[Rfam]
Nucleotides: 032
Base pairs, nucleotide, nucleotide: 003030004029005028006027007026009025010024011023012021013020014018
Number, partner (000 for none) and nucleotide at each position: 001000a002000c003030u004029u005028a006027a007026u008000c009025a010024g011023u012021a013020g014018c015000a016000g017000u018014g019000a020013c021012u022000c023011a024010c025009u026007a027006u028005u029004a030003a031000a032000a